[Rfam]
RNA sequence: UCAUCAGUAAAAAAGAAAUAUGAAAACAAUUACUAACAAUACAUGGUGGUGGAACAAUUUACGUCGAUAGUCGUGAACAAAGCUCCUAUGGUAUAAUUAGUACACUAUAAAUAUAAAAGGCUUGUC
Numbered sequence: 001u002c003a004u005c006a007g008u009a010a011a012a013a014a015g016a017a018a019u020a021u022g023a024a025a026a027c028a029a030u031u032a033c034u035a036a037c038a039a040u041a042c043a044u045g046g047u048g049g050u051g052g053a054a055c056a057a058u059u060u061a062c063g064u065c066g067a068u069a070g071u072c073g074u075g076a077a078c079a080a081a082g083c084u085c086c087u088a089u090g091g092u093a094u095a096a097u098u099a100g101u102a103c104a105c106u107a108u109a110a111a112u113a114u115a116a117a118a119g120g121c122u123u124g125u126c
Base pairs, nucleotide, nucleotide: 035098036097039094040093041092042090043089044088045087046086048084049083050082058077059076060075061071062070
The record is a 126-nucleotide sequence from Flavobacterium sp. TAB 87, which matches "Bacteroidete tryptophan peptide leader RNA" in Rfam. The match comes from Rfam's covariance-model search (68 bits). The family's consensus secondary structure is taken from published work.